This 57-nucleotide sequence from Propionimicrobium lymphophilum belongs to the Rfam family "msiK RNA".
[Rfam]
RNA sequence: UUCAACCGUUUCCACAACGGAUCGUCGGGCACGUACCUGCCCGUGGAAAGGAUGUGU
Numbered sequence: 001u002u003c004a005a006c007c008g009u010u011u012c013c014a015c016a017a018c019g020g021a022u023c024g025u026c027g028g029g030c031a032c033g034u035a036c037c038u039g040c041c042c043g044u045g046g047a048a049a050g051g052a053u054g055u056g057u
Base pairs, nucleotide, nucleotide: 009049010048011047012046013045014044026043027042028041029040030039031038
Rfam classes the family as a cis-regulatory element. It scores 60 bits against the family's covariance model.